A member of the RNA family "Mammalian CPEB3 ribozyme" from Alligator sinensis, 76 nucleotides long.
It scores 42 bits against the family's covariance model.
[Rfam]
RNA sequence: GGUCACAAUCUUGAAGCCAUAGCAGAAGGGCUCCCAAUGCGGCCUGUCAGAUUCAAGUGAAUCUCUGAAUUCUGCU
Numbered sequence: 001g002g003u004c005a006c007a008a009u010c011u012u013g014a015a016g017c018c019a020u021a022g023c024a025g026a027a028g029g030g031c032u033c034c035c036a037a038u039g040c041g042g043c044c045u046g047u048c049a050g051a052u053u054c055a056a057g058u059g060a061a062u063c064u065c066u067g068a069a070u071u072c073u074g075c076u
Stems, first nucleotide, its partner, number of pairs: 013044001016043003021076007028040001030038001049064006